RNA sequence: UUUUUCCUCCUCAAACUUUCGUUUUUGGGUAUUUCGUCCAGACUUAAGUUCACACCAACUCACC
Number, nucleotide and partner (000 for none) at each position: 001u000002u000003u000004u000005u000006c000007c000008u000009c000010c000011u000012c000013a000014a050015a049016c048017u047018u046019u000020c000021g043022u042023u041024u040025u000026u000027g039028g038029g037030u036031a000032u000033u000034u000035c000036g030037u029038c028039c027040a024041g023042a022043c021044u000045u000046a018047a017048g016049u015050u014051c000052a000053c000054a000055c000056c000057a000058a000059c000060u000061c000062a000063c000064c000
Shown here is a 64-nucleotide sequence, a member of the family "ES173 sRNA". The sequence is in the family's curated seed alignment. Differentially expressed under several chemical stress conditions. It is annotated as a small RNA.